A member of the RNA family "Small nucleolar RNA snoR145" from Asparagus officinalis, 150 nucleotides long. The family has 19 seed sequences and 286 matches in Rfam 15.1. Rfam links the family to the GO terms nucleolus and RNA processing. The organism belongs to Asparagus, within Eukaryota. Pairs were carried over by alignment from the consensus structure, which was predicted with mfold. On this family, see Chen and Wu, Nucleic Acids Res 2009: "Mining small RNA sequencing data: a new approach to identify small nucleolar RNAs in Arabidopsis".
RNA sequence: CAGCGAAGGACCCAGCAGAGGGGGAUUGGAUCUCCAAAAGUUGAGACCCCUCUAACAUUUCUAUAAACCCUUCGCAGAUUAAAAAAGGCCGGAUCGUACGACGCUUGAACUUCGUGUCUUUCACGCGUCUCAUAACAUGGCUACAGUUUU
Numbered sequence: 001c002a003g004c005g006a007a008g009g010a011c012c013c014a015g016c017a018g019a020g021g022g023g024g025a026u027u028g029g030a031u032c033u034c035c036a037a038a039a040g041u042u043g044a045g046a047c048c049c050c051u052c053u054a055a056c057a058u059u060u061c062u063a064u065a066a067a068c069c070c071u072u073c074g075c076a077g078a079u080u081a082a083a084a085a086a087g088g089c090c091g092g093a094u095c096g097u098a099c100g101a102c103g104c105u106u107g108a109a110c111u112u113c114g115u116g117u118c119u120u121u122c123a124c125g126c127g128u129c130u131c132a133u134a135a136c137a138u139g140g141c142u143a144c145a146g147u148u149u150u
Stems, first nucleotide, its partner, number of pairs: 003075007011020001013018001022052003032045003036041001088141004094135001100129002103126002106123004
Dot-bracket structure: ..(((((((.(.(....).).(((.......(((.(....).)))....)))................)))))))............((((..(.....((.((.((((..........)))).)).)).....)..)))).........